[Rfam]
Shown here is a 134-nucleotide sequence, a member of the family "Small nucleolar RNA SNORA42/SNORA80 family". The members of this family belong to the H/ACA class of snoRNAs that guide the sites of modification of uridines to pseudouridines. Human ACA42 (SNORA42) was cloned from HeLa cells by immunoprecipitation with anti-GAR1 antibody. Its is predicted to guide the pseudouridylation of residues U109 and U572 of 18S rRNA. ACA42 shares the same host gene with ACA26, ACA46, ACA50. Its family is annotated with nucleolus and RNA processing in the Gene Ontology.
RNA sequence: GCAUUAGUUUGGAUUUAUGGCAGGCCCCUUUCCCUGGGCCUCUCAUAGUGUUCUGUGCUAGAGCAGCUCUUGGCUCUGAACCAUUGCCUGGCCUGUGUCUGUAGGCUGCUGGCACUGAAGUGGGUCACACAAUA
Numbered sequence: 001g002c003a004u005u006a007g008u009u010u011g012g013a014u015u016u017a018u019g020g021c022a023g024g025c026c027c028c029u030u031u032c033c034c035u036g037g038g039c040c041u042c043u044c045a046u047a048g049u050g051u052u053c054u055g056u057g058c059u060a061g062a063g064c065a066g067c068u069c070u071u072g073g074c075u076c077u078g079a080a081c082c083a084u085u086g087c088c089u090g091g092c093c094u095g096u097g098u099c100u101g102u103a104g105g106c107u108g109c110u111g112g113c114a115c116u117g118a119a120g121u122g123g124g125u126c127a128c129a130c131a132a133u134a
Base pairs, nucleotide, nucleotide: 001058002057003056004055006052007051008050015048016047017046018045019044020043022041023040024039025037026036071127072126073125074124075123076122082117083116087112088111089108090107091106092105093104094103